[Rfam]
RNA sequence: AAGUGCCCCUCGACUGUAACAGCAACUCCAUGAGGAAGUUUGAGGCGCUGUUCCCAUGGGGGGGCUGUUAUUUUGGAUGGGCAC
Numbered sequence: 001a002a003g004u005g006c007c008c009c010u011c012g013a014c015u016g017u018a019a020c021a022g023c024a025a026c027u028c029c030a031u032g033a034g035g036a037a038g039u040u041u042g043a044g045g046c047g048c049u050g051u052u053c054c055c056a057u058g059g060g061g062g063g064g065c066u067g068u069u070a071u072u073u074u075g076g077a078u079g080g081g082c083a084c
Stems, first nucleotide, its partner, number of pairs: 010077002016071008026061006034054002
Overview: A member of the RNA family "mir-194 microRNA precursor family" from Notechis scutatus, 84 nucleotides long. Lineage of the source: Eukaryota > Deuterostomia > Episquamata > Elapidae > Notechis. The family's consensus secondary structure was predicted with RNAalifold. For this family Rfam cites "Reduced accumulation of specific microRNAs in colorectal neoplasia" (Michael et al., Mol Cancer Res, 2003). Rfam links the family to the GO terms RISC complex and miRNA-mediated post-transcriptional gene silencing.